[Rfam]
RNA: MIR7504 microRNA precursor family
Organism: Gossypium gossypioides
RNA sequence: AAUAGGAACAUGACAAAUCAGAUUUUUCCUCCCGAUUUUUAGCAUUUUUAGUUGUAUUUGAAUUUCUUCAGGAAGAAAAAAUUGAAAAUCAAGAGAAAAAAAUCCAAUUUAUCAUGCUCAUAUU
Numbered sequence: 001a002a003u004a005g006g007a008a009c010a011u012g013a014c015a016a017a018u019c020a021g022a023u024u025u026u027u028c029c030u031c032c033c034g035a036u037u038u039u040u041a042g043c044a045u046u047u048u049u050a051g052u053u054g055u056a057u058u059u060g061a062a063u064u065u066c067u068u069c070a071g072g073a074a075g076a077a078a079a080a081a082u083u084g085a086a087a088a089u090c091a092a093g094a095g096a097a098a099a100a101a102a103u104c105c106a107a108u109u110u111a112u113c114a115u116g117c118u119c120a121u122a123u124u
Base pairs, nucleotide, nucleotide: 001124002123003122004121006119007118009116010115011114012113013112015110016109017108018107021104022103023101024100025099026098027097029095030094031093034090035089036088037087038086039085041083042082045079046078047077048076